[Rfam]
The record is a 49-nucleotide sequence from Halomonas sp. 1513, which matches "Guanidine-II riboswitch aptamer (mini-ykkC)" in Rfam. The family's consensus secondary structure is taken from published work. Taxonomically the source falls in Halomonas (Bacteria, Pseudomonadati, Pseudomonadota, Gammaproteobacteria). Rfam links the family to the GO term regulation of gene expression. The literature on the family includes a 2007 paper in Nucleic Acids Res by Weinberg et al., "Identification of 22 candidate structured RNAs in bacteria using the CMfinder comparative genomics pipeline". Rfam's curators write: Simpler in structure and has fewer highly conserved nucleotide positions than the ykkC-yxkD leader.
RNA sequence: CCCCGGGGACGACCCCGGCGGCUAUUUUCUCGGACGCGGGACGACCCGC
Number, nucleotide and partner (000 for none) at each position: 001c020002c000003c018004c017005g016006g015007g014008g013009a000010c000011g000012a000013c008014c007015c006016c005017g004018g003019c000020g001021g000022c000023u000024a000025u000026u000027u000028u000029c000030u000031c000032g000033g000034a000035c000036g049037c048038g047039g046040g045041a000042c000043g000044a000045c040046c039047c038048g037049c036